Rfam assigns this 59-nucleotide sequence from Bifidobacterium subtile to the family "msiK RNA". Rfam classes the family as a cis-regulatory element.
RNA sequence: ACGCAUGGCCCUUCACAACGGAUCGUUCGGCGCGUACCUGCCGAUGAAAGGACGACCAU
Numbered sequence: 001a002c003g004c005a006u007g008g009c010c011c012u013u014c015a016c017a018a019c020g021g022a023u024c025g026u027u028c029g030g031c032g033c034g035u036a037c038c039u040g041c042c043g044a045u046g047a048a049a050g051g052a053c054g055a056c057c058a059u
Base pairs, nucleotide, nucleotide: 009051010050012048013047014046015045027044028043029042030041031040032039